[Rfam]
RNA sequence: GCGGUUGUGGCGAAGUGGUUAACGCACCAGAUUGUGGCUCUGGCAUUCGUGGGUUCGAUUCCCAUCAAUCGCC
Number, nucleotide and partner (000 for none) at each position: 001g072002c071003g070004g069005u068006u067007g066008u000009g000010g025011c024012g023013a000014a000015g000016u000017g000018g000019u000020u000021a000022a000023c012024g011025c010026a000027c043028c042029a041030g040031a039032u000033u000034g000035u000036g000037g000038c000039u031040c030041u029042g028043g027044c000045a000046u000047u000048c000049g065050u064051g063052g062053g061054u000055u000056c000057g000058a000059u000060u000061c053062c052063c051064a050065u049066c007067a006068a005069u004070c003071g002072c001073c000
Rfam assigns this 73-nucleotide sequence from Bacillus subtilis to the family "tRNA". It is annotated as a transfer RNA. The sequence is in the family's curated seed alignment. The organism belongs to Bacillus, within Bacteria. Pairs were carried over by alignment from the consensus structure, which is taken from published work.